[Rfam]
RNA sequence: AGUAUUUAUGGCGAUGGAGCUCGCCAAAACCGCCUUUCCAGUACAGGUUAAAUUCAUGACUGGAGGCUGAUGGCUCCUACUUUCUC
Numbered sequence: 001a002g003u004a005u006u007u008a009u010g011g012c013g014a015u016g017g018a019g020c021u022c023g024c025c026a027a028a029a030c031c032g033c034c035u036u037u038c039c040a041g042u043a044c045a046g047g048u049u050a051a052a053u054u055c056a057u058g059a060c061u062g063g064a065g066g067c068u069g070a071u072g073g074c075u076c077c078u079a080c081u082u083u084c085u086c
Base pairs, nucleotide, nucleotide: 010025011024012023013022016077017076018075019074020073021072032067033066034065035064036063037062
About this RNA
This 86-nucleotide RNA from Nostoc sp. FACHB-888 belongs to the Rfam family "Fluoride riboswitch aptamer (crcB RNA motif)". Rfam 15.1 lists 2,293 matches to the family in 1,982 species. The organism belongs to Nostoc, within Bacteria. It scores 53 bits against the family's covariance model.